RNA: proV RNA
RNA sequence: CGUCGCUGCCGGCUCCCGUGGGCCGGCAGACCGAGAGCUCACCGCUCCGGACCGAAGAGCCCAUAAGCGGUAGCCUUCCCCUCGAAACGAAGGCAUGCCUAGAAGAAAUUUCGGAAGUACGAGCACCUCAGGUCGAGGUGUCGCAUACC
Numbered sequence: 001c002g003u004c005g006c007u008g009c010c011g012g013c014u015c016c017c018g019u020g021g022g023c024c025g026g027c028a029g030a031c032c033g034a035g036a037g038c039u040c041a042c043c044g045c046u047c048c049g050g051a052c053c054g055a056a057g058a059g060c061c062c063a064u065a066a067g068c069g070g071u072a073g074c075c076u077u078c079c080c081c082u083c084g085a086a087a088c089g090a091a092g093g094c095a096u097g098c099c100u101a102g103a104a105g106a107a108a109u110u111u112c113g114g115a116a117g118u119a120c121g122a123g124c125a126c127c128u129c130a131g132g133u134c135g136a137g138g139u140g141u142c143g144c145a146u147a148c149c
Stems, first nucleotide, its partner, number of pairs: 006029010031050003035047004123141007